[Rfam]
t44 RNA: an 86-nucleotide sequence from Grimontia hollisae.
The source organism's lineage runs through Bacteria, Pseudomonadati, Pseudomonadota, Grimontia and Grimontia hollisae.
It is annotated as a small RNA.
Rfam's curators write: This family consists of a number of bacterial RNA genes of between 135 and 170 bases in length.
RNA sequence: CUUAAUUUAUUAACUCACACACAUAUCGGCACAUACGCCGGGGUGCCCUUGAAGGGUCGGAUGUAUGGGAUAUGUGGAGGCCUAAC
Number, nucleotide and partner (000 for none) at each position: 001c000002u000003u000004a000005a000006u000007u000008u000009a000010u000011u000012a000013a000014c000015u000016c000017a000018c000019a000020c076021a075022c074023a073024u072025a071026u070027c069028g000029g000030c000031a000032c067033a066034u065035a064036c063037g000038c060039c059040g058041g000042g000043g000044u000045g057046c056047c055048c054049u053050u000051g000052a000053a049054g048055g047056g046057u045058c040059g039060g038061a000062u000063g036064u035065a034066u033067g032068g000069g027070a026071u025072a024073u023074g022075u021076g020077g000078a000079g000080g000081c000082c000083u000084a000085a000086c000